[Rfam]
RNA sequence: GGCGGGAUAGCCAAGUGGUAAGGCCGGGCUCUGCAAAAGCCCCAUGCGCCGGUUCGAUUCCGGCUCCCGCCU
Number, nucleotide and partner (000 for none) at each position: 001g071002g070003c069004g068005g067006g066007a065008u000009a000010g024011c023012c022013a000014a000015g000016u000017g000018g000019u000020a000021a000022g012023g011024c010025c000026g042027g041028g040029c039030u038031c000032u000033g000034c000035a000036a000037a000038a030039g029040c028041c027042c026043c000044a000045u000046g000047c000048g064049c063050c062051g061052g060053u000054u000055c000056g000057a000058u000059u000060c052061c051062g050063g049064c048065u007066c006067c005068c004069g003070c002071c001072u000
The family of this 72-nucleotide RNA from Verrucomicrobium sp. GAS474 is "tRNA". Taxonomically the source falls in Verrucomicrobium (Bacteria, Pseudomonadati, Verrucomicrobiales, Verrucomicrobiaceae). It is annotated as a transfer RNA. On this family, see Hou, Trends Biochem Sci 1993: "The tertiary structure of tRNA and the development of the genetic code".